[Rfam]
RNA sequence: UGUAAUAGUUUGGUAACUCAAGGGUGGUUGGCUCACUGCAUAUAAAAGAACGCAGGCUACUAAGAGUACCGCGUUCUGUGAUAACGUCCCAAUUACCUGCUCUAUUAUGCAGGCCGGGGGGUGAUGCCUCUUGACAGUAUUCGAAGCACUAAUGUUUGCAAUUUCUUUUACUACAUUAGUCAUAAUGAUUCUGUCUUUUAACUAUAAAAAAUAACCCAUCCUUGAGUUAACGGCUCAGAUGGGUUAGUACACCACUAGCCAAUCCCCUUGUAGGGACCGACUAUUAUAUUGACUACUUGAUGUCGCAUCAUCAAGUG
Numbered sequence: 001u002g003u004a005a006u007a008g009u010u011u012g013g014u015a016a017c018u019c020a021a022g023g024g025u026g027g028u029u030g031g032c033u034c035a036c037u038g039c040a041u042a043u044a045a046a047a048g049a050a051c052g053c054a055g056g057c058u059a060c061u062a063a064g065a066g067u068a069c070c071g072c073g074u075u076c077u078g079u080g081a082u083a084a085c086g087u088c089c090c091a092a093u094u095a096c097c098u099g100c101u102c103u104a105u106u107a108u109g110c111a112g113g114c115c116g117g118g119g120g121g122u123g124a125u126g127c128c129u130c131u132u133g134a135c136a137g138u139a140u141u142c143g144a145a146g147c148a149c150u151a152a153u154g155u156u157u158g159c160a161a162u163u164u165c166u167u168u169u170a171c172u173a174c175a176u177u178a179g180u181c182a183u184a185a186u187g188a189u190u191c192u193g194u195c196u197u198u199u200a201a202c203u204a205u206a207a208a209a210a211a212u213a214a215c216c217c218a219u220c221c222u223u224g225a226g227u228u229a230a231c232g233g234c235u236c237a238g239a240u241g242g243g244u245u246a247g248u249a250c251a252c253c254a255c256u257a258g259c260c261a262a263u264c265c266c267c268u269u270g271u272a273g274g275g276a277c278c279g280a281c282u283a284u285u286a287u288a289u290u291g292a293c294u295a296c297u298u299g300a301u302g303u304c305g306c307a308u309c310a311u312c313a314a315g316u317g
Base pairs, nucleotide, nucleotide: 001288002287003286004285005284007282008281009280010262011261012260013259014258017226018225019224020223021222022221023220024219026216027215028214029213033124034123035122036121037120039118133195134194135193136192137191139189146159147158148157169187170186172184237245238244263276264275265274266273294317295316296315297314298313299312300311301310302309
Dot-bracket structure: (((((.((((((((..((((((((.((((...(((((.(..............................................................................).)))))........(((((.(......(((........))).........((.(...........).)).).))))).................))))..))))))))..........((.....))............)))))((((......))))...))).))))).....(((((((((......)))))))))